The record is a 119-nucleotide RNA from Hibiscus trionum, which matches "U5 spliceosomal RNA" in Rfam. Pairs were carried over by alignment from the consensus structure, which is taken from published work. The family has 180 seed sequences and 28,527 matches in Rfam 15.1. It scores 89 bits against the family's covariance model. It is annotated as a spliceosomal small nuclear RNA.

[Rfam]
RNA sequence: AGUCAUGCAUUGAGCACAAAGCGAACUAUUCUUUCGCCUUUUACUAAAGAAUACCGUGUGCUCGCUGCAAAAAGUGGCAUAUGCCUAUUUUUGGAGGGCUCUCUCUUUUGAAAGGGCCC
Numbered sequence: 001a002g003u004c005a006u007g008c009a010u011u012g013a014g015c016a017c018a019a020a021g022c023g024a025a026c027u028a029u030u031c032u033u034u035c036g037c038c039u040u041u042u043a044c045u046a047a048a049g050a051a052u053a054c055c056g057u058g059u060g061c062u063c064g065c066u067g068c069a070a071a072a073a074g075u076g077g078c079a080u081a082u083g084c085c086u087a088u089u090u091u092u093g094g095a096g097g098g099c100u101c102u103c104u105c106u107u108u109u110g111a112a113a114g115g116g117c118c119c
Stems, first nucleotide, its partner, number of pairs: 003077004008067002011064008027053008097118006
Dot-bracket structure: ..((((.((.((((((((........((((((((...........))))))))...)))))))).))......))))...................((((((..........)))))).